[Rfam]
RNA: L17-Actino-Proteobacteria ribosomal protein leader
RNA sequence: GACCGCGUCGCCUGACGCGGCCGGCCCGACCCCGGUACCUGGUACGGCCGGGGCGG
Numbered sequence: 001g002a003c004c005g006c007g008u009c010g011c012c013u014g015a016c017g018c019g020g021c022c023g024g025c026c027c028g029a030c031c032c033c034g035g036u037a038c039c040u041g042g043u044a045c046g047g048c049c050g051g052g053g054c055g056g
Stems, first nucleotide, its partner, number of pairs: 001022001003020007026056003030053007